[Rfam]
RNA sequence: UGCCAGAGAACUGUGAUGUGACAUUUCCAAGCACAUAUCUGACUGCUUUUUGUGGAAACAUGACUAUUUCUGAGUUUUCUAGAG
Number, nucleotide and partner (000 for none) at each position: 001u084002g000003c082004c000005a080006g079007a000008g077009a076010a075011c074012u000013g000014u000015g000016a000017u000018g000019u000020g000021a000022c000023a000024u000025u000026u000027c000028c000029a000030a000031g000032c000033a000034c000035a000036u000037a000038u000039c000040u000041g000042a000043c000044u000045g000046c000047u000048u000049u000050u000051u000052g000053u000054g000055g000056a000057a000058a000059c000060a000061u000062g000063a000064c000065u000066a000067u000068u000069u000070c000071u000072g000073a000074g011075u010076u009077u008078u000079c006080u005081a000082g003083a000084g001